[Rfam]
RNA sequence: CGAUGACUGUUCCUCCUGCUGCCCCAAGCACUGGCCUCAGGAUUUUAUGUUAUCGGAGAUUAAACUUGACUUUCUUCACUCAGAGCGCACUGGGACAACUGGGAUUGUCUGUCUGCGUUUUGAAUUUUGCGGGGUCAAACAUAC
Numbered sequence: 001c002g003a004u005g006a007c008u009g010u011u012c013c014u015c016c017u018g019c020u021g022c023c024c025c026a027a028g029c030a031c032u033g034g035c036c037u038c039a040g041g042a043u044u045u046u047a048u049g050u051u052a053u054c055g056g057a058g059a060u061u062a063a064a065c066u067u068g069a070c071u072u073u074c075u076u077c078a079c080u081c082a083g084a085g086c087g088c089a090c091u092g093g094g095a096c097a098a099c100u101g102g103g104a105u106u107g108u109c110u111g112u113c114u115g116c117g118u119u120u121u122g123a124a125u126u127u128u129g130c131g132g133g134g135u136c137a138a139a140c141a142u143a144c
Stems, first nucleotide, its partner, number of pairs: 001055007014042005021035003068136006080123010093110005
RNA: Small nucleolar RNA SNORA79
Organism: Chiloscyllium punctatum